[Rfam]
RNA sequence: UUCAGAUAAAGGCAAACCUAUUGAAAAAUAGGGACGCAAAGUCACAGAUCUAAGGUCUAAAGGAUAUAAAUGCACUAGGAUGGCUGGACUUCCUAU
Numbered sequence: 001u002u003c004a005g006a007u008a009a010a011g012g013c014a015a016a017c018c019u020a021u022u023g024a025a026a027a028a029u030a031g032g033g034a035c036g037c038a039a040a041g042u043c044a045c046a047g048a049u050c051u052a053a054g055g056u057c058u059a060a061a062g063g064a065u066a067u068a069a070a071u072g073c074a075c076u077a078g079g080a081u082g083g084c085u086g087g088a089c090u091u092c093c094u095a096u
Base pairs, nucleotide, nucleotide: 012037013036017032018031019030020029021028022027040090041089042088043087045086046085047084048081049080050079055075056074058072
RNA: c-di-GMP-I riboswitch aptamer